RNA sequence: UCGAGGCUCCAUCUAUAAAUGGAUAAUAUUUUGGUUUUCAAAAAGGAUACGAGUUUUUGAAAAUAAAGGGGUAAAGGAGUAAUAUCAACAUUGUUGAUAUUACUCCCCCUUU
Numbered sequence: 001u002c003g004a005g006g007c008u009c010c011a012u013c014u015a016u017a018a019a020u021g022g023a024u025a026a027u028a029u030u031u032u033g034g035u036u037u038u039c040a041a042a043a044a045g046g047a048u049a050c051g052a053g054u055u056u057u058u059g060a061a062a063a064u065a066a067a068g069g070g071g072u073a074a075a076g077g078a079g080u081a082a083u084a085u086c087a088a089c090a091u092u093g094u095u096g097a098u099a100u101u102a103c104u105c106c107c108c109c110u111u112u
Base pairs, nucleotide, nucleotide: 008023009022010021011020012019073112074111075110076109077108078104079103080102081101082100083099084098085097087095088094089093
The record is a 112-nucleotide RNA from Medicago truncatula, which matches "Plastid-psbA-1 3UTR RNA" in Rfam.
The source organism's lineage runs through Eukaryota, Streptophyta, Spermatophyta, rosids and Medicago.
Its Rfam clan is "Plastid-psbA 3UTR RNA clan".
By type it is a cis-regulatory element.
The match comes from Rfam's covariance-model search (67 bits).
Rfam describes the family as follows. Plastid psbA-1 is a non-coding RNA (ncRNA) present in plastids. It was identified in inverted repeat sequences in the 3 prime untranslate region (3UTR) of photosystem II quinone-binding protein (psbA).